[Rfam]
RNA sequence: AGGGGUUCCACGUUUGCAGCUAUAGCAAAUGUGUUCACGGUAUGGCCUCUCAGAUUCCAACAAAUCUGCAAAUUCUGCU
Numbered sequence: 001a002g003g004g005g006u007u008c009c010a011c012g013u014u015u016g017c018a019g020c021u022a023u024a025g026c027a028a029a030u031g032u033g034u035u036c037a038c039g040g041u042a043u044g045g046c047c048u049c050u051c052a053g054a055u056u057c058c059a060a061c062a063a064a065u066c067u068g069c070a071a072a073u074u075c076u077g078c079u
Base pairs, nucleotide, nucleotide: 016047019046020045021044024079025078026077027076029074031043032042033041051068052067053066054065055064056063

This 79-nucleotide RNA sequence from Alligator mississippiensis belongs to the Rfam family "Mammalian CPEB3 ribozyme". The base pairs follow the family's consensus structure, which is taken from published work. The family has 14 seed sequences and 5,706 matches in Rfam 15.1. The match comes from Rfam's covariance-model search (37 bits). NCBI's taxonomy places the organism under Eukaryota, Eumetazoa, Vertebrata, Dipnotetrapodomorpha, Alligator. From the family's description: The mammalian CPEB3 ribozyme is a self cleaving RNA located in the second intron of the CPEB3 gene which belongs to a family of genes regulating messenger RNA polyadenylation.